[Rfam]
RNA sequence: GGUUGCCAGGCAGUGUGGUUAGCUGAUUGCCCAGAACAACAAUCACUAACCACACGGCCAGGAAAAC
Numbered sequence: 001g002g003u004u005g006c007c008a009g010g011c012a013g014u015g016u017g018g019u020u021a022g023c024u025g026a027u028u029g030c031c032c033a034g035a036a037c038a039a040c041a042a043u044c045a046c047u048a049a050c051c052a053c054a055c056g057g058c059c060a061g062g063a064a065a066a067c
Base pairs, nucleotide, nucleotide: 003065004064006062009059010058013055014054015053016052017051018050019049020048021047022046024045025044026043027042028041029040
Annotation:
mir-34 microRNA precursor family: a 67-nucleotide RNA from Alaudala cheleensis. A search with the family's covariance model found it, with a score of 61 bits. The literature on the family includes a 2003 paper in Science by Lim et al., "Vertebrate microRNA genes". Human mir-34a was discovered computationally and later experimentally verified. The mature sequence is excised from the 5' arm of the hairpin. Gene Ontology terms of the family: miRNA-mediated post-transcriptional gene silencing and RISC complex. NCBI's taxonomy places the organism under Eukaryota, Eumetazoa, Sauropsida, Telluraves, Alaudala.